[Rfam]
RNA: Small nucleolar RNA Z199
RNA sequence: GAUCAGUUGAUGAGCAAAUACUGCAACAAUAUGACGGAGACAAUCUAUAUGAUUAUUAGUAUUUUAUUCUCUGAUGAUC
Numbered sequence: 001g002a003u004c005a006g007u008u009g010a011u012g013a014g015c016a017a018a019u020a021c022u023g024c025a026a027c028a029a030u031a032u033g034a035c036g037g038a039g040a041c042a043a044u045c046u047a048u049a050u051g052a053u054u055a056u057u058a059g060u061a062u063u064u065u066a067u068u069c070u071c072u073g074a075u076g077a078u079c
Base pairs, nucleotide, nucleotide: 001078003077004076005075036048038046039045040044